[Rfam]
RNA sequence: UAACAGAAAAGGUUUGCAGAGCGGUCGGCUUUUCCUCCGGAAGGAGAUGAUACCAUGGAAGUAUACGAGACUUUAGCACUAAUGAUCUCUUUUGGAACAUUAGUCGCCUUAUUACUUACCUCCGAUAAACGGAAAUAGACCGCUCAUCCUGCAAAAGUGAUGCGGUCUAUCCGUGUUAACUUGAAGCCGUCCGCCCUUUAAGCGGCUGUUGCAAGGAGCCAUGUUAGCGCAUGGCUC
Numbered sequence: 001u002a003a004c005a006g007a008a009a010a011g012g013u014u015u016g017c018a019g020a021g022c023g024g025u026c027g028g029c030u031u032u033u034c035c036u037c038c039g040g041a042a043g044g045a046g047a048u049g050a051u052a053c054c055a056u057g058g059a060a061g062u063a064u065a066c067g068a069g070a071c072u073u074u075a076g077c078a079c080u081a082a083u084g085a086u087c088u089c090u091u092u093u094g095g096a097a098c099a100u101u102a103g104u105c106g107c108c109u110u111a112u113u114a115c116u117u118a119c120c121u122c123c124g125a126u127a128a129a130c131g132g133a134a135a136u137a138g139a140c141c142g143c144u145c146a147u148c149c150u151g152c153a154a155a156a157g158u159g160a161u162g163c164g165g166u167c168u169a170u171c172c173g174u175g176u177u178a179a180c181u182u183g184a185a186g187c188c189g190u191c192c193g194c195c196c197u198u199u200a201a202g203c204g205g206c207u208g209u210u211g212c213a214a215g216g217a218g219c220c221a222u223g224u225u226a227g228c229g230c231a232u233g234g235c236u237c
Stems, first nucleotide, its partner, number of pairs: 001211006009190001011188004016148001019145005029049001032046005057119001059117005071084001095110002155174001157172001191205004216237009